Rfam assigns this 90-nucleotide sequence from Danio rerio to the family "mir-731 microRNA precursor family".

RNA sequence: UGAUGCUGAUCUGGAAUGACACGUUUUCUCCCGGAUCGCCAGAAAUAUGUUUCGCCACCGGGAACUUCGUGUCAGCCAAGAUUGGCAUCA
Numbered sequence: 001u002g003a004u005g006c007u008g009a010u011c012u013g014g015a016a017u018g019a020c021a022c023g024u025u026u027u028c029u030c031c032c033g034g035a036u037c038g039c040c041a042g043a044a045a046u047a048u049g050u051u052u053c054g055c056c057a058c059c060g061g062g063a064a065c066u067u068c069g070u071g072u073c074a075g076c077c078a079a080g081a082u083u084g085g086c087a088u089c090a
Base pairs, nucleotide, nucleotide: 001090002089003088004087005086006085007084008083009082010081011080017074018073019072020071021070022069023068029063030062031061032060033059034058036057038055039054042053043052
NCBI's taxonomy places the organism under Eukaryota, Eumetazoa, Deuterostomia, Chordata, Danio. The family has 2 seed sequences and 91 matches in Rfam 15.1. Its family is annotated with miRNA-mediated post-transcriptional gene silencing and RISC complex in the Gene Ontology.